[Rfam]
RNA sequence: CGUCCUGCUGUCAGUAACAAGGAUUCAUCCUGUUGUGCUGCAGACUCACAGGAAAUCACUGUUACUGGAGGCAUGCUU
Numbered sequence: 001c002g003u004c005c006u007g008c009u010g011u012c013a014g015u016a017a018c019a020a021g022g023a024u025u026c027a028u029c030c031u032g033u034u035g036u037g038c039u040g041c042a043g044a045c046u047c048a049c050a051g052g053a054a055a056u057c058a059c060u061g062u063u064a065c066u067g068g069a070g071g072c073a074u075g076c077u078u
Stems, first nucleotide, its partner, number of pairs: 011068009022057004029052005035046001037045001039043001